[Rfam]
RNA sequence: GGUCAAGAGUCCCAGCGAAAAGCCCCGGCUUGCUGGGCGGCAACCCUCCACCGCGGUGGGGUGCCCCGGGUGAGGACAAGGUCAUUUCGAGACUGAGAUGACAAGCGCGGGGC
Numbered sequence: 001g002g003u004c005a006a007g008a009g010u011c012c013c014a015g016c017g018a019a020a021a022g023c024c025c026c027g028g029c030u031u032g033c034u035g036g037g038c039g040g041c042a043a044c045c046c047u048c049c050a051c052c053g054c055g056g057u058g059g060g061g062u063g064c065c066c067c068g069g070g071u072g073a074g075g076a077c078a079a080g081g082u083c084a085u086u087u088c089g090a091g092a093c094u095g096a097g098a099u100g101a102c103a104a105g106c107g108c109g110g111g112g113c
Base pairs, nucleotide, nucleotide: 002077003076004075009038011037012036013035014034015033016032021030022029039065040064041063044061045060046059048056049055081102082101083100084099085098086097087096088095089094

The family of this 113-nucleotide RNA sequence from Leekyejoonella antrihumi is "SAM (S-adenosyl methionine) riboswitch aptamer".
The family's consensus secondary structure is taken from published work.
For this family Rfam cites "The aptamer core of SAM-IV riboswitches mimics the ligand-binding site of SAM-I riboswitches" (Weinberg et al., RNA, 2008).
From the family's description: SAM-IV is a mRNA element that regulates gene expression via direct sensing of S-adenosylmethionine (SAM or AdoMet). SAM-IV riboswitches share conserved nucleotide positions with the previously described SAM-I riboswitches sequence analysis and molecular recognition experiments suggest that SAM-I and SAM-IV riboswitches share similar ligand binding sites, but have different scaffolds.
Its Rfam clan is "SAM clan".